[Rfam]
Nucleotides: 174
Stems, first nucleotide, its partner, number of pairs: 005169004010164006017158003031144004036140006056120003060116003070109002073105004078096002
Number, partner (000 for none) and nucleotide at each position: 001000a002000u003000u004000u005169g006168c007167c008166u009000u010164g011163g012162g013161u014160g015159u016000u017158u018157g019156u020000g021000a022000u023000g024000c025000a026000u027000u028000u029000u030000u031144u032143c033142c034141u035000u036140a037139g038138a039137g040136c041135c042000a043000a044000c045000a046000c047000c048000u049000a050000a051000c052000g053000a054000u055000g056120g057119g058118g059000g060116g061115c062114c063000a064000g065000u066000a067000u068000u069000a070109g071108g072000u073105a074104g075103c076102c077000u078096u079095g080000a081000a082000g083000u084000g085000c086000u087000u088000g089000a090000a091000a092000a093000a094000g095079c096078a097000c098000c099000u100000a101000a102076g103075g104074c105073u106000a107000u108071u109070c110000u111000c112000g113000a114062g115061g116060u117000a118058c119057c120056c121000a122000c123000u124000u125000a126000u127000c128000a129000u130000u131000g132000c133000u134000a135041g136040g137039u138038u139037c140036u141034a142033g143032g144031a145000a146000a147000a148000a149000u150000c151000c152000g153000c154000a155000c156019a157018c158017g159015g160014c161013a162012c163011c164010u165000u166008a167007g168006g169005c170000u171000u172000u173000a174000a
Description
6S / SsrS RNA: a 174-nucleotide sequence from Desulfurella amilsii. The source organism's lineage runs through Bacteria, Campylobacterota, Desulfurellia, Desulfurellales and Desulfurella. About the family: E. coli 6S RNA was the first non coding RNA to be sequenced, but its function was unknown until recently. It consists of 184 nucleotides that fold into an extended hairpin structure with a large single-stranded internal bulge. The 6S RNA specifically associates with RNA polymerase holoenzyme containing the sigma70 specificity factor. This interaction represses expression from a sigma70-dependent promoter during stationary phase. 6S RNA homologs have recently been identified in most bacterial genomes. By type it is a non-coding RNA gene. It scores 48 bits against the family's covariance model.